[Rfam]
RNA sequence: AACUAGCCCAGAUAGGAACGGCAUCCUUUUUAUUGUUUUAGGGACAUGCCCUUCGACUGUGCUUAGGGUGAUAAAACAAUAAAAAGAUAGAGUGGAUAGCUGGAAAUAGC
Numbered sequence: 001a002a003c004u005a006g007c008c009c010a011g012a013u014a015g016g017a018a019c020g021g022c023a024u025c026c027u028u029u030u031u032a033u034u035g036u037u038u039u040a041g042g043g044a045c046a047u048g049c050c051c052u053u054c055g056a057c058u059g060u061g062c063u064u065a066g067g068g069u070g071a072u073a074a075a076a077c078a079a080u081a082a083a084a085a086g087a088u089a090g091a092g093u094g095g096a097u098a099g100c101u102g103g104a105a106a107u108a109g110c
Stems, first nucleotide, its partner, number of pairs: 009102003013098002018093002023088003029083012
The family of this 110-nucleotide RNA sequence is "Flavo-1 RNA". Rfam's curators put it in the seed alignment.